[Rfam]
RNA sequence: UGCUGUUCUCAGGGCGGGGUGCAAUUCCCCACCGGCGGUUACAGCCCGCGAGCGGCCCGUACGAUGUAAUGUACGGGUGUCAGCAGAUCCGGUGAAAGUCCGGGGCCGACGGUCAUAGUCCGGAUGAGAGAGAGCAGCG
Numbered sequence: 001u002g003c004u005g006u007u008c009u010c011a012g013g014g015c016g017g018g019g020u021g022c023a024a025u026u027c028c029c030c031a032c033c034g035g036c037g038g039u040u041a042c043a044g045c046c047c048g049c050g051a052g053c054g055g056c057c058c059g060u061a062c063g064a065u066g067u068a069a070u071g072u073a074c075g076g077g078u079g080u081c082a083g084c085a086g087a088u089c090c091g092g093u094g095a096a097a098g099u100c101c102g103g104g105g106c107c108g109a110c111g112g113u114c115a116u117a118g119u120c121c122g123g124a125u126g127a128g129a130g131a132g133a134g135c136a137g138c139g
Stems, first nucleotide, its partner, number of pairs: 003137008017029003031119002033108002035049004044106002052084002088104005110122003
The family of this 139-nucleotide RNA from Pseudooctadecabacter jejudonensis is "FMN riboswitch aptamer (RFN element)". The RFN element is a highly conserved domain that is found frequently in the 5'-untranslated regions of prokaryotic mRNAs that encode for flavin mononucleotide (FMN) biosynthesis and transport proteins. The match comes from Rfam's covariance-model search (114 bits). Pairs were carried over by alignment from the consensus structure, which is taken from published work.